[Rfam]
RNA: U2 spliceosomal RNA
Organism: Channa argus
RNA sequence: AUCGCUUCUCGGCCUUUUGGCUAAGAUCAAGUGUAGUAUACUGUUCUUAUCAGUUAUAUCUGAUAUGUCAUAUACACGGGGACAACUUAUUAAACGGAUUUUUAGAACCGGGAGGUGAAAAAAGGGGCUUGCUCGUUCACUCCACGCAUCGCCUGGCUUGCAGUGCCGCUGGGAACGGUGCAGCCUUC
Numbered sequence: 001a002u003c004g005c006u007u008c009u010c011g012g013c014c015u016u017u018u019g020g021c022u023a024a025g026a027u028c029a030a031g032u033g034u035a036g037u038a039u040a041c042u043g044u045u046c047u048u049a050u051c052a053g054u055u056a057u058a059u060c061u062g063a064u065a066u067g068u069c070a071u072a073u074a075c076a077c078g079g080g081g082a083c084a085a086c087u088u089a090u091u092a093a094a095c096g097g098a099u100u101u102u103u104a105g106a107a108c109c110g111g112g113a114g115g116u117g118a119a120a121a122a123a124g125g126g127g128c129u130u131g132c133u134c135g136u137u138c139a140c141u142c143c144a145c146g147c148a149u150c151g152c153c154u155g156g157c158u159u160g161c162a163g164u165g166c167c168g169c170u171g172g173g174a175a176c177g178g179u180g181c182a183g184c185c186u187u188c
Base pairs, nucleotide, nucleotide: 007026008025009024011022012021013020014019048065049064050063051062052061053060067083068082069081071079111143112142113141114140116139117138118137119136125134126133127132146181147180148179149178150177151176152173153172154171155170156169157168